RNA sequence: GAUGGCACUUAGCAUAUAAGGGUCCAGCAACAAAAACCCCGGCUUAUACGGGGUUUUUUGUUAUCUAAGCAUUUGUAAAUGCGUUUAGAUAAUGUUUGCUUGGAAUUUAAAUUGGGCUUUGAGCCCUUUUUUU
Dot-bracket structure: ................................(((((((((.......)))))))))........................................................((((.....)))).......
The record is a 133-nucleotide RNA from Vibrionales bacterium SWAT-3, which matches "Gammaprotebacteria rimP leader" in Rfam. A reference for the family is Naville and Gautheret (2010), "Premature terminator analysis sheds light on a hidden world of bacterial transcriptional attenuation", Genome Biol. The source organism's lineage runs through Bacteria, Pseudomonadati, Pseudomonadota, Gammaproteobacteria and Vibrionales.